[Rfam]
Rfam assigns this 252-nucleotide RNA from Anabaena sp. 90 to the family "HNH endonuclease-associated RNA and ORF (HEARO) RNA". The base pairs follow the family's consensus structure, which is taken from published work. It is annotated as a non-coding RNA gene. On this family, see Weinberg et al., Nature 2009: "Exceptional structured noncoding RNAs revealed by bacterial metagenome analysis". Lineage of the source: Bacteria > Cyanobacteriota > Nostocales > Nostocaceae > Anabaena.

RNA sequence: GUCAGUAACCCAGCCCUAAAGGGACUGAGCUUGCAAGAGUAAUCAAGCAAGCUGUGCUGACCAGACCACCCUGAGCUUAGUCUCAUGGUAGCCGUUAUUUGAGUCACGACACCUGGGAAUGCGUAGCUAGUUCCCCGCUCUGUCGCUUGUGAUUAAACAGUUCUAAGGUCACUGGAACAGUGUUGCAAGUCUAACAAGCUCUUAGAACAGGUCGUUCGCGCCAGCGUGCCGGAGGCAUCUAGCUAACAUUAC
Number, nucleotide and partner (000 for none) at each position: 001g061002u060003c059004a058005g057006u056007a055008a000009c000010c029011c000012a026013g025014c000015c022016c021017u000018a000019a000020a000021g016022g015023g000024a000025c013026u012027g000028a000029g010030c051031u050032u049033g048034c000035a000036a000037g000038a000039g000040u000041a000042a000043u000044c000045a000046a000047g000048c033049a032050a031051g030052c000053u000054g000055u007056g006057c005058u004059g003060a002061c001062c000063a000064g213065a212066c211067c210068a000069c000070c000071c088072u087073g000074a000075g000076c000077u000078u000079a000080g000081u000082c000083u000084c000085a000086u000087g072088g071089u000090a000091g000092c000093c000094g208095u207096u206097a000098u204099u000100u000101g201102a200103g199104u198105c000106a000107c000108g000109a143110c142111a000112c000113c137114u000115g135116g134117g133118a132119a131120u130121g000122c000123g000124u245125a244126g243127c242128u241129a000130g120131u119132u118133c117134c116135c115136c000137g113138c000139u000140c000141u000142g110143u109144c000145g190146c189147u188148u187149g186150u185151g184152a183153u182154u000155a000156a000157a181158c180159a000160g178161u177162u176163c175164u174165a173166a000167g000168g000169u000170c000171a000172c000173u165174g164175g163176a162177a161178c160179a000180g158181u157182g153183u152184u151185g150186c149187a148188a147189g146190u145191c000192u000193a000194a000195c000196a000197a000198g104199c103200u102201c101202u000203u000204a098205g000206a096207a095208c094209a000210g067211g066212u065213c064214g000215u000216u000217c000218g000219c000220g000221c000222c000223a000224g000225c000226g000227u000228g000229c000230c000231g000232g000233a000234g000235g000236c000237a000238u000239c000240u000241a128242g127243c126244u125245a124246a000247c000248a000249u000250u000251a000252c000